The family of this 72-nucleotide sequence from Eubucco bourcierii is "Small nucleolar RNA SNORD18". It scores 77 bits against the family's covariance model. Gene Ontology terms of the family: nucleolus and RNA processing. On this family, see Prislei et al., Nucleic Acids Res 1993: "Two different snoRNAs are encoded in introns of amphibian and human L1 ribosomal protein genes". The source organism's lineage runs through Eukaryota, Metazoa, Euteleostomi, Coraciimorphae and Eubucco.

RNA sequence: UAAGAAUGAUGAGAUUCCACUUAAUUGGUCCGUGUUUCUGAAACACAUGAUCUUUGUGGAACUUCUGACUUG
Numbered sequence: 001u002a003a004g005a006a007u008g009a010u011g012a013g014a015u016u017c018c019a020c021u022u023a024a025u026u027g028g029u030c031c032g033u034g035u036u037u038c039u040g041a042a043a044c045a046c047a048u049g050a051u052c053u054u055u056g057u058g059g060a061a062c063u064u065c066u067g068a069c070u071u072g
Stems, first nucleotide, its partner, number of pairs: 001072004